Notes
A member of the RNA family "Iron response element I" from Tupaia belangeri, 35 nucleotides long. On this family, see Hentze et al., Science 1987: "Identification of the iron-responsive element for the translational regulation of human ferritin mRNA". Gene Ontology term of the family: response to iron ion.
RNA sequence: UAGUUUCCUGCUUCAACUGUGCUUGAAUGGAACUG
Numbered sequence: 001u002a003g004u005u006u007c008c009u010g011c012u013u014c015a016a017c018u019g020u021g022c023u024u025g026a027a028u029g030g031a032a033c034u035g
Stems, first nucleotide, its partner, number of pairs: 001035005007030002010028001012027005017021001